RNA sequence: CCCCCGCUUCACCUCCCUGAGCGGGCCCCGCUGCCUGCGACGCGGCGGGGUUUUCCGCCCGGAUUUCCGGGCAUUUUUUU
Numbered sequence: 001c002c003c004c005c006g007c008u009u010c011a012c013c014u015c016c017c018u019g020a021g022c023g024g025g026c027c028c029c030g031c032u033g034c035c036u037g038c039g040a041c042g043c044g045g046c047g048g049g050g051u052u053u054u055c056c057g058c059c060c061g062g063a064u065u066u067c068c069g070g071g072c073a074u075u076u077u078u079u080u
Stems, first nucleotide, its partner, number of pairs: 003025006028045004033041001057072006
Shown here is an 80-nucleotide sequence from Acidovorax sp. JS42, a member of the family "Burkholderia RNA 7 (anti-hemB)". NCBI's taxonomy places the organism under Bacteria, Pseudomonadota, Betaproteobacteria, Burkholderiales, Acidovorax. The family's RNA type in Rfam is small RNA. This RNA motif was identified by computational search in b-proteobacteria Burkholderia. Co-purified with Hfq, expression confirmed by Northern blot. Pairs were carried over by alignment from the consensus structure, which is taken from published work.